[Rfam]
RNA: ZMP/ZTP riboswitch aptamer (pfl RNA motif)
RNA sequence: CAGGAGUCAUAUGACUGACGGAUGUGGAGAACCACAGGGGAGUAUGACGGAAAAAGCCGACCGUCUGGGCAGAACAG
Numbered sequence: 001c002a003g004g005a006g007u008c009a010u011a012u013g014a015c016u017g018a019c020g021g022a023u024g025u026g027g028a029g030a031a032c033c034a035c036a037g038g039g040g041a042g043u044a045u046g047a048c049g050g051a052a053a054a055a056g057c058c059g060a061c062c063g064u065c066u067g068g069g070c071a072g073a074a075c076a077g
Base pairs, nucleotide, nucleotide: 006048007047008046009045010044011043012042015039016038017065018064019063020062021061024035025034026033027032056070057069058068